[Rfam]
RNA sequence: AUUUCAUAAAAUAUUGUUGCUCAUAUAAUAGUGGGGAUAUGGCCUACGAGUUUCUACCAGAUUACCGUAAAUGAUCUGACUAUGAGUAUUGCUUUUGUUCAU
Numbered sequence: 001a002u003u004u005c006a007u008a009a010a011a012u013a014u015u016g017u018u019g020c021u022c023a024u025a026u027a028a029u030a031g032u033g034g035g036g037a038u039a040u041g042g043c044c045u046a047c048g049a050g051u052u053u054c055u056a057c058c059a060g061a062u063u064a065c066c067g068u069a070a071a072u073g074a075u076c077u078g079a080c081u082a083u084g085a086g087u088a089u090u091g092c093u094u095u096u097g098u099u100c101a102u
Stems, first nucleotide, its partner, number of pairs: 018088008029049001031047005058078007
Notes
Purine riboswitch aptamer: a 102-nucleotide RNA sequence from Pontibacillus litoralis. The source organism's lineage runs through Bacteria, Bacillati, Bacilli, Caryophanales and Pontibacillus litoralis. The base pairs follow the family's consensus structure, which is taken from published work.